A member of the RNA family "U4 spliceosomal RNA" from Balaenoptera musculus, 147 nucleotides long.
Rfam 15.1 lists 32,178 matches to the family in 2,547 species.
For this family Rfam cites "Structure of a pre-catalytic spliceosome" (Plaschka et al., Nature, 2017).
Rfam's curators write: U4 small nuclear RNA (U4 snRNA) is a component of the major U2-dependent spliceosome.
NCBI's taxonomy places the organism under Eukaryota, Eumetazoa, Laurasiatheria, Artiodactyla, Balaenoptera.
RNA sequence: GGCUUUGUGCAGUGGCAGCAUUGUAGCCAAUGAGGUUUAUCUGAGGCACAGUUAUUGCUAAUUGAAAACACCUACAUGCCAAACACUGUGCUAAAUCCUAGGGACAGAAUAGUGUGUGAUUUAGAUACAAUUCAGUCUCUUUUGGAG
Numbered sequence: 001g002g003c004u005u006u007g008u009g010c011a012g013u014g015g016c017a018g019c020a021u022u023g024u025a026g027c028c029a030a031u032g033a034g035g036u037u038u039a040u041c042u043g044a045g046g047c048a049c050a051g052u053u054a055u056u057g058c059u060a061a062u063u064g065a066a067a068a069c070a071c072c073u074a075c076a077u078g079c080c081a082a083a084c085a086c087u088g089u090g091c092u093a094a095a096u097c098c099u100a101g102g103g104a105c106a107g108a109a110u111a112g113u114g115u116g117u118g119a120u121u122u123a124g125a126u127a128c129a130a131u132u133c134a135g136u137c138u139c140u141u142u143u144g145g146a147g
Base pairs, nucleotide, nucleotide: 020052021051022050023049024048026047027046028045034042035041088128089127090126091124092123093122094121095120096119097118099116100115137147138146139145
Dot-bracket structure: ...................(((((.(((.....((.....))..))))))))...................................((((((((((.((..............)).))))))).)))........(((.....)))